RNA sequence: GUGCGGUGAAGGACUUAGCUAACUCUGUGAACAGAUCUUUGAAUGCCUUCAUGUUCACAGUGGCUAAGUUCCGCACCUCAG
Numbered sequence: 001g002u003g004c005g006g007u008g009a010a011g012g013a014c015u016u017a018g019c020u021a022a023c024u025c026u027g028u029g030a031a032c033a034g035a036u037c038u039u040u041g042a043a044u045g046c047c048u049u050c051a052u053g054u055u056c057a058c059a060g061u062g063g064c065u066a067a068g069u070u071c072c073g074c075a076c077c078u079c080a081g
Stems, first nucleotide, its partner, number of pairs: 011071010027058007
RNA: mir-27 microRNA precursor family
Organism: Scyliorhinus torazame